A member of the RNA family "Bacillaceae-1 RNA" from Psychrobacillus glaciei, 68 nucleotides long.

RNA sequence: CACAUAGGAACAAAGGCUAAUAGCGCCACAUCGUGUGGCAACGCCUUCGUGACCAACACCCUUGUGGC
Numbered sequence: 001c002a003c004a005u006a007g008g009a010a011c012a013a014a015g016g017c018u019a020a021u022a023g024c025g026c027c028a029c030a031u032c033g034u035g036u037g038g039c040a041a042c043g044c045c046u047u048c049g050u051g052a053c054c055a056a057c058a059c060c061c062u063u064g065u066g067g068c
Stems, first nucleotide, its partner, number of pairs: 011049001013047005025039005054067001056065002